[Rfam]
RNA sequence: GCCCUCUUGGCCAAGUGGUUAAGGCAUCUCCCUAGUAAGGAGAAGAUCGACGGUUCGAUCCCGUCAGGGGGCU
Number, nucleotide and partner (000 for none) at each position: 001g072002c071003c070004c069005u068006c067007u066008u000009g000010g025011c024012c023013a000014a000015g000016u000017g000018g000019u000020u000021a000022a000023g012024g011025c010026a000027u043028c042029u041030c040031c039032c000033u000034a000035g000036u000037a000038a000039g031040g030041a029042g028043a027044a000045g000046a000047u000048c000049g065050a064051c063052g062053g061054u000055u000056c000057g000058a000059u000060c000061c053062c052063g051064u050065c049066a007067g006068g005069g004070g003071g002072c001073u000
RNA: tRNA